[Rfam]
RNA sequence: AAAGCAGGACGCAAUUACAGUGCUUCAUUCUGUGGGAGUACUGCCAUUACCCUGCUGAGAGCAACAUCCUGCUUCAGAGUCACGACUUAUCAUUCUUCUGAUUGAUAGGACUGCUCUCUAGCGGAGACAGCU
Numbered sequence: 001a002a003a004g005c006a007g008g009a010c011g012c013a014a015u016u017a018c019a020g021u022g023c024u025u026c027a028u029u030c031u032g033u034g035g036g037a038g039u040a041c042u043g044c045c046a047u048u049a050c051c052c053u054g055c056u057g058a059g060a061g062c063a064a065c066a067u068c069c070u071g072c073u074u075c076a077g078a079g080u081c082a083c084g085a086c087u088u089a090u091c092a093u094u095c096u097u098c099u100g101a102u103u104g105a106u107a108g109g110a111c112u113g114c115u116c117u118c119u120a121g122c123g124g125a126g127a128c129a130g131c132u
Stems, first nucleotide, its partner, number of pairs: 003056006018043009067126001069124005076119003084111001086109007094101002
This 132-nucleotide RNA from Astyanax mexicanus belongs to the Rfam family "Small nucleolar RNA SNORA69". The base pairs follow the family's consensus structure, which was predicted with PFOLD. The family has 16 seed sequences and 808 matches in Rfam 15.1. Lineage of the source: Eukaryota > Metazoa > Teleostei > Otophysi > Astyanax. About the family: U69 is a member of the H/ACA class of small nucleolar RNAs (snoRNAs) which act as guides in the the modification of uridines to pseudouridines.